Source information: The family of this 184-nucleotide RNA sequence from Caloranaerobacter sp. TR13 is "Lysine riboswitch aptamer". A search with the family's covariance model found it, with a score of 128 bits. Gene Ontology term of the family: lysine biosynthetic process. Lineage of the source: Bacteria > Bacillati > Bacillota > Tissierellia > Caloranaerobacter.
[Rfam]
RNA sequence: GGGUGAGGUAGAGGCGCGACAUCUAAGAGUAGCUAUAGGGAGGCCGGAAGCCUAUGAAAUAUAGUGAAAGGAGCUGUCGCCGAAGUCUUAGAUAUCCAAAAUCUAAGGCUGGGCCUGCAUCGAAUAGGUGUAGGACUGUCAUCAGGAUAAUUGCCCGAUAUCCUGAUGGAGUGCUAUCUCACGC
Numbered sequence: 001g002g003g004u005g006a007g008g009u010a011g012a013g014g015c016g017c018g019a020c021a022u023c024u025a026a027g028a029g030u031a032g033c034u035a036u037a038g039g040g041a042g043g044c045c046g047g048a049a050g051c052c053u054a055u056g057a058a059a060u061a062u063a064g065u066g067a068a069a070g071g072a073g074c075u076g077u078c079g080c081c082g083a084a085g086u087c088u089u090a091g092a093u094a095u096c097c098a099a100a101a102u103c104u105a106a107g108g109c110u111g112g113g114c115c116u117g118c119a120u121c122g123a124a125u126a127g128g129u130g131u132a133g134g135a136c137u138g139u140c141a142u143c144a145g146g147a148u149a150a151u152u153g154c155c156c157g158a159u160a161u162c163c164u165g166a167u168g169g170a171g172u173g174c175u176a177u178c179u180c181a182c183g184c
Stems, first nucleotide, its partner, number of pairs: 006179006016080006023073002032065006084110010095099001111137002114134008139169011